RNA sequence: AUACUCCUGGGGUGUGCGAUAACUCCUAUUGUUUUGAACCUACAUUAUGACAUUCGGGAUUCCAAGAUCGCUUAGCAGAUGUCAGGCCGUCAUUAUGCAGCGGAAGGCAGAAGCUUAAGUUGAGGAUUUACCCACCUAGCACGGCUAGGCGUCAAAAGAUAGGAGCCGGCACUUUGGGACAUAC
Numbered sequence: 001a002u003a004c005u006c007c008u009g010g011g012g013u014g015u016g017c018g019a020u021a022a023c024u025c026c027u028a029u030u031g032u033u034u035u036g037a038a039c040c041u042a043c044a045u046u047a048u049g050a051c052a053u054u055c056g057g058g059a060u061u062c063c064a065a066g067a068u069c070g071c072u073u074a075g076c077a078g079a080u081g082u083c084a085g086g087c088c089g090u091c092a093u094u095a096u097g098c099a100g101c102g103g104a105a106g107g108c109a110g111a112a113g114c115u116u117a118a119g120u121u122g123a124g125g126a127u128u129u130a131c132c133c134a135c136c137u138a139g140c141a142c143g144g145c146u147a148g149g150c151g152u153c154a155a156a157a158g159a160u161a162g163g164a165g166c167c168g169g170c171a172c173u174u175u176g177g178g179a180c181a182u183a184c
Base pairs, nucleotide, nucleotide: 005179006178007177008176009175010174011173012172013171014170015169017168018167032157033156035154036153037152039149040148056133057132058131061126062125063124067121070120071119072118074115075114076113082107083106087103088102089101090100

This 184-nucleotide sequence from Lachnotalea sp. AF33-28 belongs to the Rfam family "6S / SsrS RNA". The base pairs follow the family's consensus structure, which is taken from published work. A search with the family's covariance model found it, with a score of 54 bits. Lineage of the source: Bacteria > Bacillota > Lachnospirales > Lachnospiraceae > Lachnotalea. Rfam 15.1 lists 5,006 matches to the family in 4,638 species. E. coli 6S RNA was the first non coding RNA to be sequenced, but its function was unknown until recently. It consists of 184 nucleotides that fold into an extended hairpin structure with a large single-stranded internal bulge. The 6S RNA specifically associates with RNA polymerase holoenzyme containing the sigma70 specificity factor. For this family Rfam cites "6S RNA in Rhodobacter sphaeroides: 6S RNA and pRNA transcript levels peak in late exponential phase and gene deletion causes a high salt stress phenotype" (Elkina et al., RNA Biol, 2017).